Description
nrdJ RNA: an 85-nucleotide sequence from Streptomyces fagopyri. A search with the family's covariance model found it, with a score of 79 bits.
RNA sequence: ACCUGCUGCGCAAGGCCGUACCGACGGCACGCGCAGCAUCAGACACACAACGUGCCAUGGGAAGAACGUGGCACUUCAGGGCGUU
Numbered sequence: 001a002c003c004u005g006c007u008g009c010g011c012a013a014g015g016c017c018g019u020a021c022c023g024a025c026g027g028c029a030c031g032c033g034c035a036g037c038a039u040c041a042g043a044c045a046c047a048c049a050a051c052g053u054g055c056c057a058u059g060g061g062a063a064g065a066a067c068g069u070g071g072c073a074c075u076u077c078a079g080g081g082c083g084u085u
Stems, first nucleotide, its partner, number of pairs: 004038008015028005052074008